[Rfam]
RNA: HDV ribozyme from F. prausnitzii
RNA sequence: CCCCUUCAAGUACCACCUCUACGCGGUGAUGGGGAGGCAACGCCAUUUAUGGCGGCUAACGAUACA
Numbered sequence: 001c002c003c004c005u006u007c008a009a010g011u012a013c014c015a016c017c018u019c020u021a022c023g024c025g026g027u028g029a030u031g032g033g034g035a036g037g038c039a040a041c042g043c044c045a046u047u048u049a050u051g052g053c054g055g056c057u058a059a060c061g062a063u064a065c066a
Stems, first nucleotide, its partner, number of pairs: 001034004006029002015027003041054005